A member of the RNA family "Fluoride riboswitch aptamer (crcB RNA motif)" from Methylocystis heyeri, 62 nucleotides long. The source organism's lineage runs through Bacteria, Pseudomonadati, Pseudomonadota, Hyphomicrobiales and Methylocystis. It scores 57 bits against the family's covariance model.

RNA sequence: UGGGUGCAAGGCGAUGGAGUUCGCCUUUAACCGCCCUCGGGGCUGAUGACUCCUGGUUGAUU
Numbered sequence: 001u002g003g004g005u006g007c008a009a010g011g012c013g014a015u016g017g018a019g020u021u022c023g024c025c026u027u028u029a030a031c032c033g034c035c036c037u038c039g040g041g042g043c044u045g046a047u048g049a050c051u052c053c054u055g056g057u058u059g060a061u062u
Stems, first nucleotide, its partner, number of pairs: 010025004016053006033043003
Dot-bracket structure: .........[[[[..((((((]]]].......(((.....)))....)))))).........